The family of this 258-nucleotide sequence from Sparus aurata is "RNase MRP".
The organism belongs to Sparus, within Eukaryota.
RNA sequence: GGGCAUUCGGAAGUCUUGCACUCUGGGCUACCUACAGAGAAUCUGAUUUCUCCCCACCGCCCAGGGGAAAGUCCCCGGACUCGAGGCAGAAAGUGUCGCUGGGUUAUUCCAGUGUCCGCUAGCGCCGCACCGCUAAUAAGCUAAGACGUUCGUACGAGCAGAGCUUGGUGUUCGCUGGUAGACUUUGUCAGCGUUACUAGUAAUGCAAGUGCGCACUUACUAACGCAUAAACAGAACGGGGCUCAUUCUCGGAAUGCA
Numbered sequence: 001g002g003g004c005a006u007u008c009g010g011a012a013g014u015c016u017u018g019c020a021c022u023c024u025g026g027g028c029u030a031c032c033u034a035c036a037g038a039g040a041a042u043c044u045g046a047u048u049u050c051u052c053c054c055c056a057c058c059g060c061c062c063a064g065g066g067g068a069a070a071g072u073c074c075c076c077g078g079a080c081u082c083g084a085g086g087c088a089g090a091a092a093g094u095g096u097c098g099c100u101g102g103g104u105u106a107u108u109c110c111a112g113u114g115u116c117c118g119c120u121a122g123c124g125c126c127g128c129a130c131c132g133c134u135a136a137u138a139a140g141c142u143a144a145g146a147c148g149u150u151c152g153u154a155c156g157a158g159c160a161g162a163g164c165u166u167g168g169u170g171u172u173c174g175c176u177g178g179u180a181g182a183c184u185u186u187g188u189c190a191g192c193g194u195u196a197c198u199a200g201u202a203a204u205g206c207a208a209g210u211g212c213g214c215a216c217u218u219a220c221u222a223a224c225g226c227a228u229a230a231a232c233a234g235a236a237c238g239g240g241g242c243u244c245a246u247u248c249u250c251g252g253a254a255u256g257c258a
Stems, first nucleotide, its partner, number of pairs: 003257006010250002015209005022065007037052005070243002073241004085097004098113006115182002118179006127171004138166004148159004211228001213226002
Dot-bracket structure: ..((((((.((...(((((..(((((((........(((((......)))))......)))))))....[[.[[[[........((((.....))))((((((....)))))).((.((((((...((((.......((((......((((....))))...)))).))))..)))))).))......................))))).(.((..........)).).........]]]]]].....)).)))))).